A member of the RNA family "Bacterial large signal recognition particle RNA" from Paenibacillus foliorum, 264 nucleotides long.
Pairs were carried over by alignment from the consensus structure, which is taken from published work.
By type it is a non-coding RNA gene.
On this family, see Rosenblad et al., RNA Biol 2009: "Kinship in the SRP RNA family".
Rfam's curators write: The signal recognition particle (SRP) is a universally conserved ribonucleoprotein involved in the co-translational targeting of proteins to membranes.
It scores 207 bits against the family's covariance model.
The organism belongs to Paenibacillus, within Bacteria.
[Rfam]
RNA sequence: CCGUGCUAGACGGGGAGGUAGCGGUGCCCUGUAACCCGCAAUCCGCUACAGCGGGGUUGAUCGCCUAACUGCGGUAUUGCGAUGUAAGGCUUGGGUUUUAGAAUUGGUGUUGAGAGUCGGGUCCUCCGCAAUGGAUGCUCGUGAAUCCGGUCAGGUUCGGAAGAAAGCAGCCGUAAGCGGGAUGUUCCAUGUGCCGGAGGGUGGCCUAACUUGAGCUGAGUCUAAAAAUUCCGCUUGGAUCGUAAUAUCAAAUUAGGUGCACGG
Numbered sequence: 001c002c003g004u005g006c007u008a009g010a011c012g013g014g015g016a017g018g019u020a021g022c023g024g025u026g027c028c029c030u031g032u033a034a035c036c037c038g039c040a041a042u043c044c045g046c047u048a049c050a051g052c053g054g055g056g057u058u059g060a061u062c063g064c065c066u067a068a069c070u071g072c073g074g075u076a077u078u079g080c081g082a083u084g085u086a087a088g089g090c091u092u093g094g095g096u097u098u099u100a101g102a103a104u105u106g107g108u109g110u111u112g113a114g115a116g117u118c119g120g121g122u123c124c125u126c127c128g129c130a131a132u133g134g135a136u137g138c139u140c141g142u143g144a145a146u147c148c149g150g151u152c153a154g155g156u157u158c159g160g161a162a163g164a165a166a167g168c169a170g171c172c173g174u175a176a177g178c179g180g181g182a183u184g185u186u187c188c189a190u191g192u193g194c195c196g197g198a199g200g201g202u203g204g205c206c207u208a209a210c211u212u213g214a215g216c217u218g219a220g221u222c223u224a225a226a227a228a229u230u231c232c233g234c235u236u237g238g239a240u241c242g243u244a245a246u247a248u249c250a251a252a253u254u255a256g257g258u259g260c261a262c263g264g
Stems, first nucleotide, its partner, number of pairs: 001264006009058003012030004017025001019023001035055005064257005070251001073249005079243005085237004093229001096227006104220002106217003114212004119207004123200006129191002132189004138181005148173004156165003